[Rfam]
RNA sequence: AUAUACACUAUAUUAUGUAUAAAUGUAUACACACUUCCCAUAUAUAUGCAUAUAUAUAGUGUAUAUAUUAUACAUGUAUAGGUGUGUAUAU
Numbered sequence: 001a002u003a004u005a006c007a008c009u010a011u012a013u014u015a016u017g018u019a020u021a022a023a024u025g026u027a028u029a030c031a032c033a034c035u036u037c038c039c040a041u042a043u044a045u046a047u048g049c050a051u052a053u054a055u056a057u058a059g060u061g062u063a064u065a066u067a068u069u070a071u072a073c074a075u076g077u078a079u080a081g082g083u084g085u086g087u088a089u090a091u
Stems, first nucleotide, its partner, number of pairs: 003085004008081006015075008024067009040055006
Shown here is a 91-nucleotide RNA sequence from Galemys pyrenaicus, a member of the family "mir-568 microRNA precursor family".
The source organism's lineage runs through Eukaryota, Metazoa, Deuterostomia, Euteleostomi and Galemys.
The family has 9 seed sequences and 131 matches in Rfam 15.1.
A search with the family's covariance model found it, with a score of 97 bits.
Gene Ontology terms of the family: miRNA-mediated post-transcriptional gene silencing and RISC complex.